[Rfam]
RNA sequence: GCUUACGGUAAUCCCGCACUUGGGGGUCACUUACGGAGUACUUUGUUGCUCAUUGCCCUUAAACCCUCGGGAAGGUCUGAGACGAGGCUCUUCUCCCUGUCGGAGAUUGAUGCUCUAGCCGGGCAGUUUUUUCGCAAGGGCGCAGGGGAAUAGAAAGGAUAUCGAUUGGAGUGUCAUUAGUCCCAUGAUGUCCAUUAGGACUAGGCGGAGACCUCUACAUGCGAUUGGAACAGCUUCUGUAGCUUGCAUAUUGAGUAUAAUCUGCGGGUUGUGGUUUUCCUAUUCUGGGCAACUGCAAAACUCAAUUCAGACUAAUCUACCGAAAGC
Numbered sequence: 001g002c003u004u005a006c007g008g009u010a011a012u013c014c015c016g017c018a019c020u021u022g023g024g025g026g027u028c029a030c031u032u033a034c035g036g037a038g039u040a041c042u043u044u045g046u047u048g049c050u051c052a053u054u055g056c057c058c059u060u061a062a063a064c065c066c067u068c069g070g071g072a073a074g075g076u077c078u079g080a081g082a083c084g085a086g087g088c089u090c091u092u093c094u095c096c097c098u099g100u101c102g103g104a105g106a107u108u109g110a111u112g113c114u115c116u117a118g119c120c121g122g123g124c125a126g127u128u129u130u131u132u133c134g135c136a137a138g139g140g141c142g143c144a145g146g147g148g149a150a151u152a153g154a155a156a157g158g159a160u161a162u163c164g165a166u167u168g169g170a171g172u173g174u175c176a177u178u179a180g181u182c183c184c185a186u187g188a189u190g191u192c193c194a195u196u197a198g199g200a201c202u203a204g205g206c207g208g209a210g211a212c213c214u215c216u217a218c219a220u221g222c223g224a225u226u227g228g229a230a231c232a233g234c235u236u237c238u239g240u241a242g243c244u245u246g247c248a249u250a251u252u253g254a255g256u257a258u259a260a261u262c263u264g265c266g267g268g269u270u271g272u273g274g275u276u277u278u279c280c281u282a283u284u285c286u287g288g289g290c291a292a293c294u295g296c297a298a299a300a301c302u303c304a305a306u307u308c309a310g311a312c313u314a315a316u317c318u319a320c321c322g323a324a325a326g327c
Stems, first nucleotide, its partner, number of pairs: 001327004008320003013268006022068005036051005041045001077310005086244004111125005126141006142240007162224003269298007
Overview:
Shown here is a 327-nucleotide RNA from Daphnia galeata, a member of the family "Nuclear RNase P". Its family is annotated with tRNA processing, ribonuclease P complex and ribonuclease P activity in the Gene Ontology. The family's RNA type in Rfam is ribozyme. The family has 116 seed sequences and 3,848 matches in Rfam 15.1. Taxonomically the source falls in Daphnia (Eukaryota, Opisthokonta, Mandibulata, Pancrustacea).